c-di-GMP-I riboswitch aptamer: an 86-nucleotide RNA sequence from Pelotomaculum schinkii. The base pairs follow the family's consensus structure, which is taken from published work.

[Rfam]
RNA sequence: UUUUUUGCAGGGCUAACCCACCGAAAGGUGGGGGCGCAAAGCCAACGGACCUAAAGCAUGGAAGCUAGGGUGGCUGGGUUGCUAAU
Numbered sequence: 001u002u003u004u005u006u007g008c009a010g011g012g013c014u015a016a017c018c019c020a021c022c023g024a025a026a027g028g029u030g031g032g033g034g035c036g037c038a039a040a041g042c043c044a045a046c047g048g049a050c051c052u053a054a055a056g057c058a059u060g061g062a063a064g065c066u067a068g069g070g071u072g073g074c075u076g077g078g079u080u081g082c083u084a085a086u
Base pairs, nucleotide, nucleotide: 012037013036017032018031019030020029021028022027040080041079042078043077046076047075048074049071050070051069056065057064